[Rfam]
RNA sequence: AAAACAAUGAUAGCGCCUGAGCUGAAGAAAUCGGACGGAAAUGGAUCUUCAGCAGACGAGGAGGAGGAGUAUCGAAGAUUCGGCGGAUACCUCCCGGCCGCGAUGCCCGGUCGUAAUUCUGAUUCUUAAACCGCAGAAGUGAUUUUGCGAUUAAAGGAAGAAGAGGGCACACGA
Numbered sequence: 001a002a003a004a005c006a007a008u009g010a011u012a013g014c015g016c017c018u019g020a021g022c023u024g025a026a027g028a029a030a031u032c033g034g035a036c037g038g039a040a041a042u043g044g045a046u047c048u049u050c051a052g053c054a055g056a057c058g059a060g061g062a063g064g065a066g067g068a069g070u071a072u073c074g075a076a077g078a079u080u081c082g083g084c085g086g087a088u089a090c091c092u093c094c095c096g097g098c099c100g101c102g103a104u105g106c107c108c109g110g111u112c113g114u115a116a117u118u119c120u121g122a123u124u125c126u127u128a129a130a131c132c133g134c135a136g137a138a139g140u141g142a143u144u145u146u147g148c149g150a151u152u153a154a155a156g157g158a159a160g161a162a163g164a165g166g167g168c169a170c171a172c173g174a
Stems, first nucleotide, its partner, number of pairs: 021053007063094005072083004095113006118164003123159002132149007
A member of the RNA family "glmS glucosamine-6-phosphate activated ribozyme aptamer" from Paenisporosarcina sp. HGH0030, 174 nucleotides long. Rfam describes the family as follows. This entry contains a glucosamine-6-phosphate activated ribozyme that is found in the mRNA for GlmS. GlmS is an enzyme that uses fructose-6-phosphate and glutamine to generate glucosamine-6-phosphate. The ribozyme catalyses self cleavage of the glmS mRNA that is thought to regulate GlmS activity. The base pairs follow the family's consensus structure, which is taken from published work. Rfam classes the family as a riboswitch.